Shown here is an 82-nucleotide RNA from Flavobacterium bizetiae, a member of the family "Flavo-1 RNA".

RNA sequence: CCCUAGCCCCGAUAAAAGUGGAAAUCCUUUUUGUUUUUUUCUUUAAAAAAUAAAAAGAUUGGAACGGAUUGCUUCGCCAGUU
Numbered sequence: 001c002c003c004u005a006g007c008c009c010c011g012a013u014a015a016a017a018g019u020g021g022a023a024a025u026c027c028u029u030u031u032u033g034u035u036u037u038u039u040u041c042u043u044u045a046a047a048a049a050a051u052a053a054a055a056a057g058a059u060u061g062g063a064a065c066g067g068a069u070u071g072c073u074u075c076g077c078c079a080g081u082u
Base pairs, nucleotide, nucleotide: 011072014069018065019064023060024059025058026057029055030054031053032052033051034050035049036048037047038046039045